A member of the RNA family "chrB-b RNA", 52 nucleotides long.
RNA sequence: UGGGGAUAAGGCAGCCUCCCCGCUUCAAGACGUUAUAUCGUCCAAGGUCUGC
Numbered sequence: 001u002g003g004g005g006a007u008a009a010g011g012c013a014g015c016c017u018c019c020c021c022g023c024u025u026c027a028a029g030a031c032g033u034u035a036u037a038u039c040g041u042c043c044a045a046g047g048u049c050u051g052c
Stems, first nucleotide, its partner, number of pairs: 001022006011052004029042004

Rfam's curators put it in the seed alignment.